[Rfam]
RNA sequence: AACUUAUCAAGAGUGGUGGAGGGACUGGCCCGAAGAAACCCAGCAACCGGUAAAUUUUAUAGAAUUACUUGGUGCUAAAUCCUGCAGCGUAAGAGCUGGUAGAUAAGGU
Numbered sequence: 001a002a003c004u005u006a007u008c009a010a011g012a013g014u015g016g017u018g019g020a021g022g023g024a025c026u027g028g029c030c031c032g033a034a035g036a037a038a039c040c041c042a043g044c045a046a047c048c049g050g051u052a053a054a055u056u057u058u059a060u061a062g063a064a065u066u067a068c069u070u071g072g073u074g075c076u077a078a079a080u081c082c083u084g085c086a087g088c089g090u091a092a093g094a095g096c097u098g099g100u101a102g103a104u105a106a107g108g109u
Base pairs, nucleotide, nucleotide: 001109003107004106005105006104007103008102013041015040016039017038021031022030023029025084027082028081042076043075044074045073047072048071050068051067052066053065080101085098086097087096088095
The family of this 109-nucleotide sequence from Clostridium beijerinckii is "SAM riboswitch aptamer (S box leader)". Rfam's curators put it in the seed alignment. Lineage of the source: Bacteria > Bacillota > Eubacteriales > Clostridium > Clostridium beijerinckii. Pairs were carried over by alignment from the consensus structure, which is taken from published work.